Small nucleolar RNA U83B: a 95-nucleotide RNA sequence from Atractosteus spatula. By type it is a C/D-box small nucleolar RNA. Rfam's curators write: U83B belongs to the C/D family of snoRNAs. The pairing is the family consensus, mapped onto this sequence. The literature on the family includes a 2000 paper in Nucleic Acids Res by Jady and Kiss, "Characterisation of the U83 and U84 small nucleolar RNAs: two novel 2'-O-ribose methylation guide RNAs that lack complementarities to ribosomal RNAs".
RNA sequence: GUGCGUCUGUGAUGAGCCCACGGAACACCGCGCCAGGCAUGGCGCCUGAAACGCAUGAGGAGACUUUCCAUGCUGCCUUCCUUCUGAGGACGCAC
Numbered sequence: 001g002u003g004c005g006u007c008u009g010u011g012a013u014g015a016g017c018c019c020a021c022g023g024a025a026c027a028c029c030g031c032g033c034c035a036g037g038c039a040u041g042g043c044g045c046c047u048g049a050a051a052c053g054c055a056u057g058a059g060g061a062g063a064c065u066u067u068c069c070a071u072g073c074u075g076c077c078u079u080c081c082u083u084c085u086g087a088g089g090a091c092g093c094a095c
Stems, first nucleotide, its partner, number of pairs: 001095005